[Rfam]
RNA sequence: ACUUCCUAGGCCGGAACGAAAAGUAGAUUGGUAUGAGGAUGCUGAAAUACUUUUGGCUUGUGGUUGUGAUGUUGUGUUUGCAAUUGUCUGGCAAUCCAGACGCGUAGCUUGAAUGCUACAAAUUUUCACUUCCUGUACAUUACCCUGUCUGUCCAAAGUGAUUUUUUAGCACCGCAUUUUGCGGUGCUUUUUUUU
Numbered sequence: 001a002c003u004u005c006c007u008a009g010g011c012c013g014g015a016a017c018g019a020a021a022a023g024u025a026g027a028u029u030g031g032u033a034u035g036a037g038g039a040u041g042c043u044g045a046a047a048u049a050c051u052u053u054u055g056g057c058u059u060g061u062g063g064u065u066g067u068g069a070u071g072u073u074g075u076g077u078u079u080g081c082a083a084u085u086g087u088c089u090g091g092c093a094a095u096c097c098a099g100a101c102g103c104g105u106a107g108c109u110u111g112a113a114u115g116c117u118a119c120a121a122a123u124u125u126u127c128a129c130u131u132c133c134u135g136u137a138c139a140u141u142a143c144c145c146u147g148u149c150u151g152u153c154c155a156a157a158g159u160g161a162u163u164u165u166u167u168a169g170c171a172c173c174g175c176a177u178u179u180u181g182c183g184g185u186g187c188u189u190u191u192u193u194u195u
Stems, first nucleotide, its partner, number of pairs: 009058004015054002021052005028045007085102007104119005137166001168188008